[Rfam]
RNA sequence: AAUAUGGCUGCUGAAAUUAAUAUGGCAUGGGACUUAUGUCUGCUAGAAUUACCAUAUUAAUUUCAGCAGCCAUAUUAA
Number, nucleotide and partner (000 for none) at each position: 001a076002a075003u074004a073005u072006g071007g070008c000009u068010g067011c066012u065013g064014a063015a062016a061017u060018u059019a058020a057021u056022a055023u054024g053025g052026c000027a050028u045029g044030g043031g040032a039033c038034u000035u000036a000037u000038g033039u032040c031041u000042g000043c030044u029045a028046g000047a000048a000049u000050u027051a000052c025053c024054a023055u022056a021057u020058u019059a018060a017061u016062u015063u014064c013065a012066g011067c010068a009069g000070c007071c006072a005073u004074a003075u002076u001077a000078a000

A member of the RNA family "mir-7131 microRNA precursor family" from Dictyostelium discoideum, 78 nucleotides long. The family has 3 seed sequences and 42 matches in Rfam 15.1.